Description:
MIR5269 microRNA precursor family: an 80-nucleotide sequence from Medicago truncatula. The source organism's lineage runs through Eukaryota, Embryophyta, Tracheophyta, fabids and Medicago.

[Rfam]
RNA sequence: UUGGGUGAAACCCAUGUGGAUCCCACACUUUGGAAAUGGAUCCCACAUAAAGUGGUGAGACCCACAUGGAUUUUAUUCAA
Numbered sequence: 001u002u003g004g005g006u007g008a009a010a011c012c013c014a015u016g017u018g019g020a021u022c023c024c025a026c027a028c029u030u031u032g033g034a035a036a037u038g039g040a041u042c043c044c045a046c047a048u049a050a051a052g053u054g055g056u057g058a059g060a061c062c063c064a065c066a067u068g069g070a071u072u073u074u075a076u077u078c079a080a
Base pairs, nucleotide, nucleotide: 001080002079003078004077005076006075007074008073009072010071012069013068014067015066016065017064018063024057025056026054027053028052029051030050031049032048